[Rfam]
RNA sequence: CUAGCAUAUGACGAUAAGCAAGACAGGGACUCUGCAGCGGCCCCGGCCGCGAAUGAUGCAUUCGUCUAGGGGAAUCUCUGAUGCUAA
Number, nucleotide and partner (000 for none) at each position: 001c000002u086003a085004g084005c083006a082007u000008a000009u000010g000011a000012c000013g000014a000015u000016a000017a000018g000019c000020a000021a000022g000023a000024c000025a000026g000027g000028g000029a000030c000031u000032c000033u000034g000035c000036a000037g000038c000039g000040g000041c000042c000043c000044c000045g000046g000047c000048c000049g000050c000051g000052a000053a000054u000055g000056a000057u000058g000059c000060a000061u000062u000063c000064g000065u000066c000067u000068a000069g000070g000071g000072g000073a000074a000075u000076c000077u000078c000079u000080g000081a000082u006083g005084c004085u003086a002087a000